[Rfam]
RNA: Lysine riboswitch aptamer
Organism: Salipaludibacillus agaradhaerens
RNA sequence: GAAACAGGUAGAGGUGCAAUGAGGAACAGUACAUUGUGGGAGCUAAGGAGGCUUUGAAAACAAUGGAAAGGCCGAGUUGCCGAAGUUGGAGAAUGCCUCCUUACAUUCCACCAGCUGGGGUACAGUUGAACAUUCUGUACACUGUCACUGCUUAUAAAUGUGGUGGAGCACUACCCUGAAA
Numbered sequence: 001g002a003a004a005c006a007g008g009u010a011g012a013g014g015u016g017c018a019a020u021g022a023g024g025a026a027c028a029g030u031a032c033a034u035u036g037u038g039g040g041a042g043c044u045a046a047g048g049a050g051g052c053u054u055u056g057a058a059a060a061c062a063a064u065g066g067a068a069a070g071g072c073c074g075a076g077u078u079g080c081c082g083a084a085g086u087u088g089g090a091g092a093a094u095g096c097c098u099c100c101u102u103a104c105a106u107u108c109c110a111c112c113a114g115c116u117g118g119g120g121u122a123c124a125g126u127u128g129a130a131c132a133u134u135c136u137g138u139a140c141a142c143u144g145u146c147a148c149u150g151c152u153u154a155u156a157a158a159u160g161u162g163g164u165g166g167a168g169c170a171c172u173a174c175c176c177u178g179a180a181a
Stems, first nucleotide, its partner, number of pairs: 007175005016080005023073002032065006084116006091108005117143002120140006145166007